[Rfam]
RNA sequence: GAGUUUAUUCUGUAGGCGAAGGUUAACCCAAAAGGGGAGCCGAAGGGAAACCAACAGGUCCGUAGCCUUCGGGCAUGGGACGGCGUAUUAAAAGUGCGUGGAGUCUGCAGGAUAAGACCCGAAGCCUAGCGAUCUAUGCGUGGGCAGGUUGAAGCGUGCCGAAAGGCGCGUGGAGGACCGCAAGCGGUUUUGAUAUGCAAAUCAUUCGUGUGACCUGCGUAUAGGAGUGAAAGAUUAAUCGAGCUGGGCAUCCGCUGGUU
Numbered sequence: 001g002a003g004u005u006u007a008u009u010c011u012g013u014a015g016g017c018g019a020a021g022g023u024u025a026a027c028c029c030a031a032a033a034g035g036g037g038a039g040c041c042g043a044a045g046g047g048a049a050a051c052c053a054a055c056a057g058g059u060c061c062g063u064a065g066c067c068u069u070c071g072g073g074c075a076u077g078g079g080a081c082g083g084c085g086u087a088u089u090a091a092a093a094g095u096g097c098g099u100g101g102a103g104u105c106u107g108c109a110g111g112a113u114a115a116g117a118c119c120c121g122a123a124g125c126c127u128a129g130c131g132a133u134c135u136a137u138g139c140g141u142g143g144g145c146a147g148g149u150u151g152a153a154g155c156g157u158g159c160c161g162a163a164a165g166g167c168g169c170g171u172g173g174a175g176g177a178c179c180g181c182a183a184g185c186g187g188u189u190u191u192g193a194u195a196u197g198c199a200a201a202u203c204a205u206u207c208g209u210g211u212g213a214c215c216u217g218c219g220u221a222u223a224g225g226a227g228u229g230a231a232a233g234a235u236u237a238a239u240c241g242a243g244c245u246g247g248g249c250a251u252c253c254g255c256u257g258g259u260u
Stems, first nucleotide, its partner, number of pairs: 005115013021041004027035002045052002058081004065074003084098004118258002121255001125248006134224011145212001147179004154171007184209004190204001192203002226236003
RNA: Archaeal large subunit ribosomal RNA, nucleotides 653 to 912
Organism: Methanoculleus marisnigri